[Rfam]
RNA sequence: AUACUUACCUGGACGGGAUCGAUGGGUGAUCAGGAAUGUCCAUGGUCUAGAUCAGUGACCUCCAUUGCACUGAGGAGGGGUGCUGGUUUAAGGUCUCCCCAAGCGGGAGAGCCUGCGUCAUAAUUUGUGGCAGAGGGGGCUGCGCCAGUCGCGGCCCCUG
Numbered sequence: 001a002u003a004c005u006u007a008c009c010u011g012g013a014c015g016g017g018a019u020c021g022a023u024g025g026g027u028g029a030u031c032a033g034g035a036a037u038g039u040c041c042a043u044g045g046u047c048u049a050g051a052u053c054a055g056u057g058a059c060c061u062c063c064a065u066u067g068c069a070c071u072g073a074g075g076a077g078g079g080g081u082g083c084u085g086g087u088u089u090a091a092g093g094u095c096u097c098c099c100c101a102a103g104c105g106g107g108a109g110a111g112c113c114u115g116c117g118u119c120a121u122a123a124u125u126u127g128u129g130g131c132a133g134a135g136g137g138g139g140c141u142g143c144g145c146c147a148g149u150c151g152c153g154g155c156c157c158c159u160g
Base pairs, nucleotide, nucleotide: 012119013118014117015116016048017047018046019045020044021043023042024041025040026039027038049089050088051087053086055083056082057081059079060078061077062075063074091114092113093112094110095109096108098106099105135159136158137157138156139155141153142152143151144150
Background: U1 spliceosomal RNA: a 160-nucleotide RNA from Salix viminalis. Rfam classes the family as a spliceosomal small nuclear RNA. The source organism's lineage runs through Eukaryota, Viridiplantae, Embryophyta, eudicotyledons and Salix. It scores 123 bits against the family's covariance model.